[Rfam]
RNA sequence: CUGGGCGCACACGACUGGCGUAGGUGGGACAACCACCAGGGAGUGUGAGCCGGCAUCGACCGCCUGGGUGCCCUCA
Numbered sequence: 001c002u003g004g005g006c007g008c009a010c011a012c013g014a015c016u017g018g019c020g021u022a023g024g025u026g027g028g029a030c031a032a033c034c035a036c037c038a039g040g041g042a043g044u045g046u047g048a049g050c051c052g053g054c055a056u057c058g059a060c061c062g063c064c065u066g067g068g069u070g071c072c073c074u075c076a
Stems, first nucleotide, its partner, number of pairs: 004051003008047005015040002017064004024036004053071005

The record is a 76-nucleotide sequence from Nocardioides immobilis, which matches "ZMP/ZTP riboswitch aptamer (pfl RNA motif)" in Rfam. The organism belongs to Nocardioides, within Bacteria. A search with the family's covariance model found it, with a score of 55 bits. Pairs were carried over by alignment from the consensus structure, which is taken from published work.